[Rfam]
RNA: Group II catalytic intron D1-D4-4
RNA sequence: CAGCAGGAGACAGUCCUGCCGGGGUAAAAGUCAGAGCCCCGUAGUUCGGAUAGCGGAGGAGAUGGAAACAGAACCUUCGAAGCCUAUCGACAAGAUCUCCCGAGGGGAGAUCACGAGUCACCGGGCUGUAUCAAAA
Numbered sequence: 001c002a003g004c005a006g007g008a009g010a011c012a013g014u015c016c017u018g019c020c021g022g023g024g025u026a027a028a029a030g031u032c033a034g035a036g037c038c039c040c041g042u043a044g045u046u047c048g049g050a051u052a053g054c055g056g057a058g059g060a061g062a063u064g065g066a067a068a069c070a071g072a073a074c075c076u077u078c079g080a081a082g083c084c085u086a087u088c089g090a091c092a093a094g095a096u097c098u099c100c101c102g103a104g105g106g107g108a109g110a111u112c113a114c115g116a117g118u119c120a121c122c123g124g125g126c127u128g129u130a131u132c133a134a135a136a
Stems, first nucleotide, its partner, number of pairs: 020041005049088005054079006063070002095111006113129003